[Rfam]
RNA sequence: GUGCCUCAAUUUAUUGAGUAAGGAAAUUAUUGGGCCUUGGUAACGCUUGGCUAUGUCCUAGUUAAGGGCGACCGUAUUUUUGCAGGGUACAGGUCGUCCCGUGAGUUGCGCGCCUACUUUGCGCGCGAUUCCGGUGAAGCGAACUGCCCU
Numbered sequence: 001g002u003g004c005c006u007c008a009a010u011u012u013a014u015u016g017a018g019u020a021a022g023g024a025a026a027u028u029a030u031u032g033g034g035c036c037u038u039g040g041u042a043a044c045g046c047u048u049g050g051c052u053a054u055g056u057c058c059u060a061g062u063u064a065a066g067g068g069c070g071a072c073c074g075u076a077u078u079u080u081u082g083c084a085g086g087g088u089a090c091a092g093g094u095c096g097u098c099c100c101g102u103g104a105g106u107u108g109c110g111c112g113c114c115u116a117c118u119u120u121g122c123g124c125g126c127g128a129u130u131c132c133g134g135u136g137a138a139g140c141g142a143a144c145u146g147c148c149c150u
Stems, first nucleotide, its partner, number of pairs: 004023003008019001033052004039046001054070005084150005091145002094142004100134001103131005109125005
RNA: U12 minor spliceosomal RNA